This 103-nucleotide RNA sequence from Vibrio cholerae belongs to the Rfam family "Tryptophan operon leader". The literature on the family includes a 1982 paper in Annu Rev Genet by Kolter and Yanofsky, "Attenuation in amino acid biosynthetic operons". NCBI's taxonomy places the organism under Bacteria, Pseudomonadota, Vibrionales, Vibrio, Vibrio cholerae. Rfam's curators write: At least 6 amino acid operons are known to be regulated by attenuation. The family's RNA type in Rfam is cis-regulatory leader.
RNA sequence: CUGGCUUGGUGGCGCACUUGGACAAGUUCUUGGUGGGCUCACGUGUAUUUCUAAGUUUAGAUACUCACACACCUAGCCCGCCAACUUGAGCGGGCUUUUUAUU
Numbered sequence: 001c002u003g004g005c006u007u008g009g010u011g012g013c014g015c016a017c018u019u020g021g022a023c024a025a026g027u028u029c030u031u032g033g034u035g036g037g038c039u040c041a042c043g044u045g046u047a048u049u050u051c052u053a054a055g056u057u058u059a060g061a062u063a064c065u066c067a068c069a070c071a072c073c074u075a076g077c078c079c080g081c082c083a084a085c086u087u088g089a090g091c092g093g094g095c096u097u098u099u100u101a102u103u
Stems, first nucleotide, its partner, number of pairs: 009042004015035004020030003075096007082088001